Notes: A member of the RNA family "SurC sRNA" from Bacillus subtilis, 161 nucleotides long. Taxonomically the source falls in Bacillus (Bacteria, Bacillati, Bacillota, Bacilli). The base pairs follow the family's consensus structure, which was predicted with mfold. It is annotated as a small RNA. The literature on the family includes a 2006 paper in J Bacteriol by Silvaggi et al., "Genes for small, noncoding RNAs under sporulation control in Bacillus subtilis".
[Rfam]
RNA sequence: GUAUCAUUUUGAAUUAUGAUUUUUCAAUUCCUUUUAUCCCGGGCAAGAAAAAAAGUCAAAGCCAAGAGAUGCCUGACUUUGACUUUCUAAUCAUUGAAUCAGAUUAUGAAAUGUGUUCUUUUCGGUCAGCUCCGGAAGCGGGGCUGACACUAAAAAGAACU
Numbered sequence: 001g002u003a004u005c006a007u008u009u010u011g012a013a014u015u016a017u018g019a020u021u022u023u024u025c026a027a028u029u030c031c032u033u034u035u036a037u038c039c040c041g042g043g044c045a046a047g048a049a050a051a052a053a054a055g056u057c058a059a060a061g062c063c064a065a066g067a068g069a070u071g072c073c074u075g076a077c078u079u080u081g082a083c084u085u086u087c088u089a090a091u092c093a094u095u096g097a098a099u100c101a102g103a104u105u106a107u108g109a110a111a112u113g114u115g116u117u118c119u120u121u122u123c124g125g126u127c128a129g130c131u132c133c134g135g136a137a138g139c140g141g142g143g144c145u146g147a148c149a150c151u152a153a154a155a156a157g158a159a160c161u
Stems, first nucleotide, its partner, number of pairs: 004109004008103005014097002016094006022050004030043003052086010065074002115160008125148010